[Rfam]
RNA sequence: UGCGCUCUCAAAGUGGUUGUGAAAUGCAUUUGAAAGCUUUGCGCGCAUAUCACAGCCAGCUUUGAUGAGCUUAG
Numbered sequence: 001u002g003c004g005c006u007c008u009c010a011a012a013g014u015g016g017u018u019g020u021g022a023a024a025u026g027c028a029u030u031u032g033a034a035a036g037c038u039u040u041g042c043g044c045g046c047a048u049a050u051c052a053c054a055g056c057c058a059g060c061u062u063u064g065a066u067g068a069g070c071u072u073a074g
Base pairs, nucleotide, nucleotide: 006067008065009064010063011062012061013060014058015057016056017055018054019053020052021051022050028048029047